[Rfam]
RNA sequence: AUCAGUCAAAAUAAACAAACUCGUAUAAUCUCGGGAAUUGGCCCGGGAGUCUCUACCUAAUCACCGGAAUGAUUAGCCUACGAGUGAUGCAACCUCAUAU
Numbered sequence: 001a002u003c004a005g006u007c008a009a010a011a012u013a014a015a016c017a018a019a020c021u022c023g024u025a026u027a028a029u030c031u032c033g034g035g036a037a038u039u040g041g042c043c044c045g046g047g048a049g050u051c052u053c054u055a056c057c058u059a060a061u062c063a064c065c066g067g068a069a070u071g072a073u074u075a076g077c078c079u080a081c082g083a084g085u086g087a088u089g090c091a092a093c094c095u096c097a098u099a100u
Base pairs, nucleotide, nucleotide: 019085020084021083022082023081024080025079029048030047031046032045033044034043035042057076058075059074060073061072062071063070

This 100-nucleotide RNA sequence from Paenibacillus larvae belongs to the Rfam family "Purine riboswitch aptamer". Pairs were carried over by alignment from the consensus structure, which is taken from published work.